RNA sequence: CGGGAUAAAAAAGCGCCAGACCUGAGUCCGCAUAUGGUUAACGAGGUGGAGAGAAAAUCGAGAUAUUCGGCGGGUACUCUCCCGGGAAGACACAACGCUUCUCGUUAGGCUGUAUACAAAAACUUUGGGCGACCGGAGAGGACAAAAAUACAGCUUAUCUUCUA
Numbered sequence: 001c002g003g004g005a006u007a008a009a010a011a012a013g014c015g016c017c018a019g020a021c022c023u024g025a026g027u028c029c030g031c032a033u034a035u036g037g038u039u040a041a042c043g044a045g046g047u048g049g050a051g052a053g054a055a056a057a058u059c060g061a062g063a064u065a066u067u068c069g070g071c072g073g074g075u076a077c078u079c080u081c082c083c084g085g086g087a088a089g090a091c092a093c094a095a096c097g098c099u100u101c102u103c104g105u106u107a108g109g110c111u112g113u114a115u116a117c118a119a120a121a122a123c124u125u126u127g128g129g130c131g132a133c134c135g136g137a138g139a140g141g142a143c144a145a146a147a148a149u150a151c152a153g154c155u156u157a158u159c160u161u162c163u164a
Stems, first nucleotide, its partner, number of pairs: 020039001022037003026033002048082005058070004083104006109154007123138006

This 164-nucleotide RNA from Massiliimalia timonensis belongs to the Rfam family "glmS glucosamine-6-phosphate activated ribozyme aptamer". Rfam describes the family as follows. This entry contains a glucosamine-6-phosphate activated ribozyme that is found in the mRNA for GlmS. GlmS is an enzyme that uses fructose-6-phosphate and glutamine to generate glucosamine-6-phosphate. For this family Rfam cites "Backbone and nucleobase contacts to glucosamine-6-phosphate in the glmS ribozyme" (Jansen et al., Nat Struct Mol Biol, 2006). The family's RNA type in Rfam is riboswitch. Taxonomically the source falls in Massiliimalia (Bacteria, Bacillati, Bacillota, Oscillospiraceae). The family's consensus secondary structure is taken from published work.